[Rfam]
RNA sequence: CUAGGUUAUUUCUCAACCUAACACUACCUGCACAUGCUAGCCAGUAAUGUAUAGUGUGAAGCUGCAGGGACAAUGUAACCUAUCUUAAAUGGUGAUGUAAAUAUCUUGAACAAAGGUCAGAAUGGAAAAAAAUCUCUUUUUUUUUUUA
Numbered sequence: 001c002u003a004g005g006u007u008a009u010u011u012c013u014c015a016a017c018c019u020a021a022c023a024c025u026a027c028c029u030g031c032a033c034a035u036g037c038u039a040g041c042c043a044g045u046a047a048u049g050u051a052u053a054g055u056g057u058g059a060a061g062c063u064g065c066a067g068g069g070a071c072a073a074u075g076u077a078a079c080c081u082a083u084c085u086u087a088a089a090u091g092g093u094g095a096u097g098u099a100a101a102u103a104u105c106u107u108g109a110a111c112a113a114a115g116g117u118c119a120g121a122a123u124g125g126a127a128a129a130a131a132a133u134c135u136c137u138u139u140u141u142u143u144u145u146u147u148a
Base pairs, nucleotide, nucleotide: 002020003019004018005017006016007015028067029066030065031064032063033058034057035056036055037054038053039052042049043048081094082093083092084091096119097118104110125143126142127141128140129139
A member of the RNA family "Group II catalytic intron D1-D4-7" from Venturia effusa, 148 nucleotides long. Rfam links the family to the GO term Group II intron splicing. The pairing is the family consensus, mapped onto this sequence. Rfam describes the family as follows. Group II introns are found in rRNA, tRNA and mRNA of organelles in fungi, plants and protists, and also in mRNA in bacteria. It scores 51 bits against the family's covariance model.